RNA sequence: AGGCGCCUGCAGCAUGACAGUUAAGGCUCUCAUGCCCGCGCGCCGGAAUCUGGUCGCGCCGCUGGGUCACAAGCCCACCGACAAGCACACAACGGAAACCGCCGCCUCAGUGCGGGCCGAGUCCGGUGCAGCUUCCGCCCUGAUCGGCGAAAACCUUCGGGGUGUCAGCUUACAUAGCGCGACAGGCAC
Dot-bracket structure: ...(((.....((((((.(((....))).))))))....)))...........((((((((.(((((.....))))).))....((((....((((..(..((((......)))).....)))))))))..((..((((((((..((......)).))))))))..))........)))))).......
Numbered sequence: 001a002g003g004c005g006c007c008u009g010c011a012g013c014a015u016g017a018c019a020g021u022u023a024a025g026g027c028u029c030u031c032a033u034g035c036c037c038g039c040g041c042g043c044c045g046g047a048a049u050c051u052g053g054u055c056g057c058g059c060c061g062c063u064g065g066g067u068c069a070c071a072a073g074c075c076c077a078c079c080g081a082c083a084a085g086c087a088c089a090c091a092a093c094g095g096a097a098a099c100c101g102c103c104g105c106c107u108c109a110g111u112g113c114g115g116g117c118c119g120a121g122u123c124c125g126g127u128g129c130a131g132c133u134u135c136c137g138c139c140c141u142g143a144u145c146g147g148c149g150a151a152a153a154c155c156u157u158c159g160g161g162g163u164g165u166c167a168g169c170u171u172a173c174a175u176a177g178c179g180c181g182a183c184a185g186g187c188a189c
Stems, first nucleotide, its partner, number of pairs: 004042003012035006019028003054182006060080002063077005085129004093125004099121001102115004132168002136164008146155002
RT-15 RNA: a 189-nucleotide sequence from Pandoraea sp. SD6-2. By type it is a small RNA.